[Rfam]
RNA sequence: CGGAGUGUAGCUCAGCCUGGUAGAGCACUUGCUUCGGGAGCAAGGGGCCGGAGGUUCGAAUCCUCUCACUCCGA
Dot-bracket structure: (((((((..((((.........)))).(((((.......))))).....(((((.......)))))))))))).
This 74-nucleotide RNA from Aliidongia dinghuensis belongs to the Rfam family "tRNA". Taxonomically the source falls in Aliidongia (Bacteria, Pseudomonadati, Alphaproteobacteria, Rhodospirillales). The base pairs follow the family's consensus structure, which is taken from published work.